The family of this 45-nucleotide RNA sequence from Novosphingobium piscinae is "chrB-b RNA".
Taxonomically the source falls in Novosphingobium (Bacteria, Pseudomonadati, Alphaproteobacteria, Sphingomonadaceae).
[Rfam]
RNA sequence: CCGGGGUCAAGCAACCUCCCGGUCAGGCGCGAGCCCAAGUGUUGC
Numbered sequence: 001c002c003g004g005g006g007u008c009a010a011g012c013a014a015c016c017u018c019c020c021g022g023u024c025a026g027g028c029g030c031g032a033g034c035c036c037a038a039g040u041g042u043u044g045c
Stems, first nucleotide, its partner, number of pairs: 001022006011045005026035003

Rfam classes the family as a cis-regulatory element.